The record is a 100-nucleotide RNA sequence from Oceanobacillus sp. J11TS1, which matches "SAM riboswitch aptamer (S box leader)" in Rfam. The organism belongs to Oceanobacillus, within Bacteria. Its family is annotated with regulation of gene expression in the Gene Ontology.
RNA sequence: UUCUUAUCUAGAGAGGUGGAGGGACUGGCCCUUUGAAGCCUCGGCAGCGGACUAAACAGUACUGUGCCAAUUCCAGCAGCAAAAAAGCUAAAGAUAGGAA
Numbered sequence: 001u002u003c004u005u006a007u008c009u010a011g012a013g014a015g016g017u018g019g020a021g022g023g024a025c026u027g028g029c030c031c032u033u034u035g036a037a038g039c040c041u042c043g044g045c046a047g048c049g050g051a052c053u054a055a056a057c058a059g060u061a062c063u064g065u066g067c068c069a070a071u072u073c074c075a076g077c078a079g080c081a082a083a084a085a086a087g088c089u090a091a092a093g094a095u096a097g098g099a100a
Base pairs, nucleotide, nucleotide: 001100002099003098004097005096006095007094008093013042014041015040016039017038021031022030023029025076026075027074028073043068044067045066046065048064049063051060052059053058072092078089079088080087